This 99-nucleotide sequence from Vanilla planifolia belongs to the Rfam family "Small nucleolar RNA Z122". A search with the family's covariance model found it, with a score of 47 bits. By type it is a C/D-box small nucleolar RNA. Pairs were carried over by alignment from the consensus structure, which was predicted with PFOLD. For this family Rfam cites "The high diversity of snoRNAs in plants: identification and comparative study of 120 snoRNA genes from Oryza sativa" (Chen et al., Nucleic Acids Res, 2003). The family has 23 seed sequences and 822 matches in Rfam 15.1. NCBI's taxonomy places the organism under Eukaryota, Streptophytina, Magnoliopsida, Mesangiospermae, Vanilla.
RNA sequence: UAUGGGAAAAGAUGACUGAUACUAUUAUCCGACGCCGCCAGUUUUCAGGUGGCAGUGUUGAGAAAAACUACAGAAUUUGCACGUCAGUCUGAUCCCUAA
Numbered sequence: 001u002a003u004g005g006g007a008a009a010a011g012a013u014g015a016c017u018g019a020u021a022c023u024a025u026u027a028u029c030c031g032a033c034g035c036c037g038c039c040a041g042u043u044u045u046c047a048g049g050u051g052g053c054a055g056u057g058u059u060g061a062g063a064a065a066a067a068c069u070a071c072a073g074a075a076u077u078u079g080c081a082c083g084u085c086a087g088u089c090u091g092a093u094c095c096c097u098a099a
Base pairs, nucleotide, nucleotide: 001099004096005095006094007093
Dot-bracket structure: (..((((.....................................................................................))))..)